Description: This 134-nucleotide RNA sequence from Phyllostomus discolor belongs to the Rfam family "Small nucleolar RNA SNORA42/SNORA80 family". The members of this family belong to the H/ACA class of snoRNAs that guide the sites of modification of uridines to pseudouridines. Human ACA42 (SNORA42) was cloned from HeLa cells by immunoprecipitation with anti-GAR1 antibody. Its is predicted to guide the pseudouridylation of residues U109 and U572 of 18S rRNA. ACA42 shares the same host gene with ACA26, ACA46, ACA50. This family also includes mammalian snoRNA ACA67 (SNORA80) which was identified by computational screening and its expression in mouse experimentally verified by Northern blot and primer extension analysis. ACA67 is proposed to guide the pseudouridylation of the same 18S rRNA residues as ACA42. By type it is an H/ACA-box small nucleolar RNA.
RNA sequence: ACAAGGGUUUGGAUUUAUGGCAGGCCCGUCCCCCUGGGUCUUUCAUAGUACCCCACGCCAGGGCAAACCGUGACCUUGAACUCUCCUCUGGCCUCCAUCCAUAGGCCACAGACACUGAAGCAGGUUACACAGUG
Numbered sequence: 001a002c003a004a005g006g007g008u009u010u011g012g013a014u015u016u017a018u019g020g021c022a023g024g025c026c027c028g029u030c031c032c033c034c035u036g037g038g039u040c041u042u043u044c045a046u047a048g049u050a051c052c053c054c055a056c057g058c059c060a061g062g063g064c065a066a067a068c069c070g071u072g073a074c075c076u077u078g079a080a081c082u083c084u085c086c087u088c089u090g091g092c093c094u095c096c097a098u099c100c101a102u103a104g105g106c107c108a109c110a111g112a113c114a115c116u117g118a119a120g121c122a123g124g125u126u127a128c129a130c131a132g133u134g
Stems, first nucleotide, its partner, number of pairs: 002057001005053004015048006022041003025037002071127006082117001087112002089108006

Its family is annotated with nucleolus and RNA processing in the Gene Ontology. Pairs were carried over by alignment from the consensus structure, which was predicted with RNAalifold. A search with the family's covariance model found it, with a score of 107 bits.